Shown here is a 566-nucleotide part of an RNA, a member of the family "Archaeal large subunit ribosomal RNA". It scores 2437 bits against the family's covariance model. Clan: LSU clan. Its family is annotated with structural constituent of ribosome and ribosome in the Gene Ontology.
RNA sequence: CCUUUUUCAAGCCGGGCAGUGGAUGGCUCGGUUCGAGAAGCCGACGAAGGACGUGGCAAGCUGCGAUAAGCUUGGGCGAGGUGCAUGCAGCCCUUGAGCCCAAGAUCUCCGAAUGGGACUUCCCAGCCAGCUUCGGCUGGCUACACGCAUUCUGCGUGGGGCACACGCGGUGAACUGAAACAUCUAAGUAACCGCAGGAAGAGAAAGCAACUGCGAUUUCCUCAGUAGCGGCGAGCGAACGGGAAACCUUCAAGCGCAAACUGAAUCCCGAGUUCGAGAGAACUGGGAGAUGUGGUUCGGCUCUCCGUUGUGUCCAACAUCCGUAGUCCAACUCUCGCUGGAACGCGGGACCACAGAGGGUGAAAGUCCCGUGGACGACAGGAUGAACGACACUGGAGAUGCCAAGAGUAGCGUGGGUUGGAAAUCCUGCGUGAAUACACGAGGCACUGUCUCGUAACGCUGAAUACUUCUCGAAUCCGAUAGCGCACUAAGUACCGUGAGGGAAAGCUGAAAAGUACUGUUCGAAGCAGACUGACAAGAUCCUCAAACUGUCCGGUCACAGGUUA
Numbered sequence: 001c002c003u004u005u006u007u008c009a010a011g012c013c014g015g016g017c018a019g020u021g022g023a024u025g026g027c028u029c030g031g032u033u034c035g036a037g038a039a040g041c042c043g044a045c046g047a048a049g050g051a052c053g054u055g056g057c058a059a060g061c062u063g064c065g066a067u068a069a070g071c072u073u074g075g076g077c078g079a080g081g082u083g084c085a086u087g088c089a090g091c092c093c094u095u096g097a098g099c100c101c102a103a104g105a106u107c108u109c110c111g112a113a114u115g116g117g118a119c120u121u122c123c124c125a126g127c128c129a130g131c132u133u134c135g136g137c138u139g140g141c142u143a144c145a146c147g148c149a150u151u152c153u154g155c156g157u158g159g160g161g162c163a164c165a166c167g168c169g170g171u172g173a174a175c176u177g178a179a180a181c182a183u184c185u186a187a188g189u190a191a192c193c194g195c196a197g198g199a200a201g202a203g204a205a206a207g208c209a210a211c212u213g214c215g216a217u218u219u220c221c222u223c224a225g226u227a228g229c230g231g232c233g234a235g236c237g238a239a240c241g242g243g244a245a246a247c248c249u250u251c252a253a254g255c256g257c258a259a260a261c262u263g264a265a266u267c268c269c270g271a272g273u274u275c276g277a278g279a280g281a282a283c284u285g286g287g288a289g290a291u292g293u294g295g296u297u298c299g300g301c302u303c304u305c306c307g308u309u310g311u312g313u314c315c316a317a318c319a320u321c322c323g324u325a326g327u328c329c330a331a332c333u334c335u336c337g338c339u340g341g342a343a344c345g346c347g348g349g350a351c352c353a354c355a356g357a358g359g360g361u362g363a364a365a366g367u368c369c370c371g372u373g374g375a376c377g378a379c380a381g382g383a384u385g386a387a388c389g390a391c392a393c394u395g396g397a398g399a400u401g402c403c404a405a406g407a408g409u410a411g412c413g414u415g416g417g418u419u420g421g422a423a424a425u426c427c428u429g430c431g432u433g434a435a436u437a438c439a440c441g442a443g444g445c446a447c448u449g450u451c452u453c454g455u456a457a458c459g460c461u462g463a464a465u466a467c468u469u470c471u472c473g474a475a476u477c478c479g480a481u482a483g484c485g486c487a488c489u490a491a492g493u494a495c496c497g498u499g500a501g502g503g504a505a506a507g508c509u510g511a512a513a514a515g516u517a518c519u520g521u522u523c524g525a526a527g528c529a530g531a532c533u534g535a536c537a538a539g540a541u542c543c544u545c546a547a548a549c550u551g552u553c554c555g556g557u558c559a560c561a562g563g564u565u566a
Stems, first nucleotide, its partner, number of pairs: 011557009025543001026508002030478002032475006039468002049110003052065003071104006080092003115124003144158005166197001167195005177184002207214002218245005228236002253461004261295003272283004302399004311392004326376003332349001334348001336347003352356001358370003411432007439455005495502002